[Rfam]
RNA sequence: AGACAGUUUCGAGGCGCAUCUGCCAUCAUUAACCGGUGUAAGGGGCCGUAUUCCCCGCUAAAAUGCCGGCCAAAGGGGCAGUAUGCCGAAGGAAGGGCGGAAAUUCGGGCCGGCUUUCCUGGGCGGACGGGCGAAGAGCCAUCCGACUGUCGCCAGGCGAAAGUUCCAGGCGAAGCGCUUAACUGUUU
Numbered sequence: 001a002g003a004c005a006g007u008u009u010c011g012a013g014g015c016g017c018a019u020c021u022g023c024c025a026u027c028a029u030u031a032a033c034c035g036g037u038g039u040a041a042g043g044g045g046c047c048g049u050a051u052u053c054c055c056c057g058c059u060a061a062a063a064u065g066c067c068g069g070c071c072a073a074a075g076g077g078g079c080a081g082u083a084u085g086c087c088g089a090a091g092g093a094a095g096g097g098c099g100g101a102a103a104u105u106c107g108g109g110c111c112g113g114c115u116u117u118c119c120u121g122g123g124c125g126g127a128c129g130g131g132c133g134a135a136g137a138g139c140c141a142u143c144c145g146a147c148u149g150u151c152g153c154c155a156g157g158c159g160a161a162a163g164u165u166c167c168a169g170g171c172g173a174a175g176c177g178c179u180u181a182a183c184u185g186u187u188u
Stems, first nucleotide, its partner, number of pairs: 006183003011178001016086004021080004033069007090120007098112003121148002124145004129140002150173005156167001
RNA: Lysine riboswitch aptamer
Organism: Luoshenia tenuis